[Rfam]
RNA: mir-172 microRNA precursor family
Organism: Centaurea solstitialis
RNA sequence: UUGUUUUCCGGCGUGGCAUCAUCAAGAUUCACGUGCAAAAUGCAAAAAAGCCUUUUGAGGAUGAGAAUCUUGAUGAUGCUGCAUCGGCAAUAAA
Numbered sequence: 001u002u003g004u005u006u007u008c009c010g011g012c013g014u015g016g017c018a019u020c021a022u023c024a025a026g027a028u029u030c031a032c033g034u035g036c037a038a039a040a041u042g043c044a045a046a047a048a049a050g051c052c053u054u055u056u057g058a059g060g061a062u063g064a065g066a067a068u069c070u071u072g073a074u075g076a077u078g079c080u081g082c083a084u085c086g087g088c089a090a091u092a093a094a
Stems, first nucleotide, its partner, number of pairs: 010085002013082018032063002